MtlS RNA: a 118-nucleotide RNA sequence from Vibrio vulnificus. On this family, see Mustachio et al., Journal of Bacteriology 2012: "The Vibrio cholerae mannitol transporter is regulated post-transcriptionally by the MtlS small RNA".
RNA sequence: UUCCCCGUUUGAUGUUCUGAUGAAUGUUGUAGUAACGGUUCGCCAAAACCGUUUGAUUGCUUAGUUCUCAAUCAAUCUACCACAUAUUUUUCUAUUAGAACUGAUAGCGGGUUUUUCG
Numbered sequence: 001u002u003c004c005c006c007g008u009u010u011g012a013u014g015u016u017c018u019g020a021u022g023a024a025u026g027u028u029g030u031a032g033u034a035a036c037g038g039u040u041c042g043c044c045a046a047a048a049c050c051g052u053u054u055g056a057u058u059g060c061u062u063a064g065u066u067c068u069c070a071a072u073c074a075a076u077c078u079a080c081c082a083c084a085u086a087u088u089u090u091u092c093u094a095u096u097a098g099a100a101c102u103g104a105u106a107g108c109g110g111g112u113u114u115u116u117c118g
Stems, first nucleotide, its partner, number of pairs: 004111006014101008022091003025086003029083002032080003036051005053075007
Overview:
Taxonomically the source falls in Vibrio vulnificus (Bacteria, Pseudomonadota, Gammaproteobacteria, Vibrionales).